[Rfam]
Bacterial small subunit ribosomal RNA: a 554-nucleotide part of an RNA from Candidatus Pinguicoccus supinus. NCBI's taxonomy places the organism under Bacteria, Pseudomonadati, Verrucomicrobiota, Candidatus Pinguicoccus.
RNA sequence: AAUUAUAAGAGUUUGAUCCUGGCUCAGAGUAAACGCUGGUAACGUGGUUUAAACAUGCAAGUUGAACGAUAAUUGUUAAAUUAUAGUAGCGAACGGGUGAGUAAUGUAUGAAUAACAUACCCUUAAAUAAGGAAUAGCCUAUCGAAAGAUAGAUUAAUACCUUAUAAAAUUUUUCGUAUAGUAGUACGGAAAUAUAAAAGUUUGUGAUGACGUUUAAGGAAUGGUUCAUAUCCUAUCAGUUGGUUGGUGAGGUAAAUGCUUACCAAGACUAAGACGGGUAGCCGAUCUGUGAGGAUGUUCGGCCACACUGGAACUGAGAUACGGUCCAGACAUCUACGGAUGGCAGCAGUUUCGAAUAAUUCACAAUGGGCGAAAGCCUGAUGAUGCGACGUUACGUGGAGGAAGAAGGCUUUAAGUCGUAAACUUCUGUCGUUAAGGAACAAAAAAUAAAGUAAUACUUUUUAUAUUGAGUUAACUUAAAAAGGAAGCAGUGGCUAAUUUCGUGCCAGCAGCCGCGGUAAUACGGGAACUGCAAGCGUUGCUCGGUUUUAUUG
Numbered sequence: 001a002a003u004u005a006u007a008a009g010a011g012u013u014u015g016a017u018c019c020u021g022g023c024u025c026a027g028a029g030u031a032a033a034c035g036c037u038g039g040u041a042a043c044g045u046g047g048u049u050u051a052a053a054c055a056u057g058c059a060a061g062u063u064g065a066a067c068g069a070u071a072a073u074u075g076u077u078a079a080a081u082u083a084u085a086g087u088a089g090c091g092a093a094c095g096g097g098u099g100a101g102u103a104a105u106g107u108a109u110g111a112a113u114a115a116c117a118u119a120c121c122c123u124u125a126a127a128u129a130a131g132g133a134a135u136a137g138c139c140u141a142u143c144g145a146a147a148g149a150u151a152g153a154u155u156a157a158u159a160c161c162u163u164a165u166a167a168a169a170u171u172u173u174u175c176g177u178a179u180a181g182u183a184g185u186a187c188g189g190a191a192a193u194a195u196a197a198a199a200g201u202u203u204g205u206g207a208u209g210a211c212g213u214u215u216a217a218g219g220a221a222u223g224g225u226u227c228a229u230a231u232c233c234u235a236u237c238a239g240u241u242g243g244u245u246g247g248u249g250a251g252g253u254a255a256a257u258g259c260u261u262a263c264c265a266a267g268a269c270u271a272a273g274a275c276g277g278g279u280a281g282c283c284g285a286u287c288u289g290u291g292a293g294g295a296u297g298u299u300c301g302g303c304c305a306c307a308c309u310g311g312a313a314c315u316g317a318g319a320u321a322c323g324g325u326c327c328a329g330a331c332a333u334c335u336a337c338g339g340a341u342g343g344c345a346g347c348a349g350u351u352u353c354g355a356a357u358a359a360u361u362c363a364c365a366a367u368g369g370g371c372g373a374a375a376g377c378c379u380g381a382u383g384a385u386g387c388g389a390c391g392u393u394a395c396g397u398g399g400a401g402g403a404a405g406a407a408g409g410c411u412u413u414a415a416g417u418c419g420u421a422a423a424c425u426u427c428u429g430u431c432g433u434u435a436a437g438g439a440a441c442a443a444a445a446a447a448u449a450a451a452g453u454a455a456u457a458c459u460u461u462u463u464a465u466a467u468u469g470a471g472u473u474a475a476c477u478u479a480a481a482a483a484g485g486a487a488g489c490a491g492u493g494g495c496u497a498a499u500u501u502c503g504u505g506c507c508a509g510c511a512g513c514c515g516c517g518g519u520a521a522u523a524c525g526g527g528a529a530c531u532g533c534a535a536g537c538g539u540u541g542c543u544c545g546g547u548u549u550u551a552u553u554g
Stems, first nucleotide, its partner, number of pairs: 009025005027544004032540006039395006045388002047353001052351003056348003061090003066087002069084006097306003106231008116223002121219007129163004137154001139152005169195002172192004177186003200211003232278003239269003244266008281303004285296004308329005331342004359385001361384003367380005398427004408418004431485001433480005441471001447465005488533005499528005509516002